[Rfam]
RNA sequence: UUUUAUUUGAGUUUGAUGAUGGCUCUGAUUGAACGCUGUCCAAGUACUUGACACAUGCUAAUCGAACGACUAAUUAGUUUGUAAAAACUGAGUAGUAGUGGUGUACAGGUGAGUAAAAGAUAAUUUGGCUACCUUAAAGUAAGGGGAAAAUCCCUUAUAUAAGAAAGGAAAUUAAAAGGUCCGCUUUAAGAUGUUAAUCUUUAUCUCGGUGAGUAGUAGGAAAGGUAAUGACUUUUCUAGCUAAUAUCCGUAGUCGUGACUGAGAGGUCGAUCGACCACAUUGGGUCUGAAAAAACCCCAAUGCGUAUUAGUACAGCAGUGAGGAAUAUUGGUCAAUGGCCGAAAGGCUGAACCAGUAACUUGGAAGAAUGAAAGUGUAUUAUAAUAAUACAAUAACGAUUAACUCGUAUAAAAUUCUAAAUAGGAUAAUGAUAAUGACAAUUUCCUAUUUAUAAGUCUUGACCAAAUUACGUGCCAGCAGUCGCGGUAAUACGUAGAAGACUAGUGUUAGUCAUCUUUAUUA
Numbered sequence: 001u002u003u004u005a006u007u008u009g010a011g012u013u014u015g016a017u018g019a020u021g022g023c024u025c026u027g028a029u030u031g032a033a034c035g036c037u038g039u040c041c042a043a044g045u046a047c048u049u050g051a052c053a054c055a056u057g058c059u060a061a062u063c064g065a066a067c068g069a070c071u072a073a074u075u076a077g078u079u080u081g082u083a084a085a086a087a088c089u090g091a092g093u094a095g096u097a098g099u100g101g102u103g104u105a106c107a108g109g110u111g112a113g114u115a116a117a118a119g120a121u122a123a124u125u126u127g128g129c130u131a132c133c134u135u136a137a138a139g140u141a142a143g144g145g146g147a148a149a150a151u152c153c154c155u156u157a158u159a160u161a162a163g164a165a166a167g168g169a170a171a172u173u174a175a176a177a178g179g180u181c182c183g184c185u186u187u188a189a190g191a192u193g194u195u196a197a198u199c200u201u202u203a204u205c206u207c208g209g210u211g212a213g214u215a216g217u218a219g220g221a222a223a224g225g226u227a228a229u230g231a232c233u234u235u236u237c238u239a240g241c242u243a244a245u246a247u248c249c250g251u252a253g254u255c256g257u258g259a260c261u262g263a264g265a266g267g268u269c270g271a272u273c274g275a276c277c278a279c280a281u282u283g284g285g286u287c288u289g290a291a292a293a294a295a296c297c298c299c300a301a302u303g304c305g306u307a308u309u310a311g312u313a314c315a316g317c318a319g320u321g322a323g324g325a326a327u328a329u330u331g332g333u334c335a336a337u338g339g340c341c342g343a344a345a346g347g348c349u350g351a352a353c354c355a356g357u358a359a360c361u362u363g364g365a366a367g368a369a370u371g372a373a374a375g376u377g378u379a380u381u382a383u384a385a386u387a388a389u390a391c392a393a394u395a396a397c398g399a400u401u402a403a404c405u406c407g408u409a410u411a412a413a414a415u416u417c418u419a420a421a422u423a424g425g426a427u428a429a430u431g432a433u434a435a436u437g438a439c440a441a442u443u444u445c446c447u448a449u450u451u452a453u454a455a456g457u458c459u460u461g462a463c464c465a466a467a468u469u470a471c472g473u474g475c476c477a478g479c480a481g482u483c484g485c486g487g488u489a490a491u492a493c494g495u496a497g498a499a500g501a502c503u504a505g506u507g508u509u510a511g512u513c514a515u516c517u518u519u520a521u522u523a
Stems, first nucleotide, its partner, number of pairs: 009025005027513004032509006039365006045358002047323001052321003056318003061102003066099002069096002074091007109279003118206006128194002133190007141156004167182003207250003212242003217239008253276004258269004281300001283298004302313003329355001331354003337350005367417004377408001420453001421449006456502005468497005478485002
This 523-nucleotide part of an RNA belongs to the Rfam family "Bacterial small subunit ribosomal RNA".
It scores 711 bits against the family's covariance model.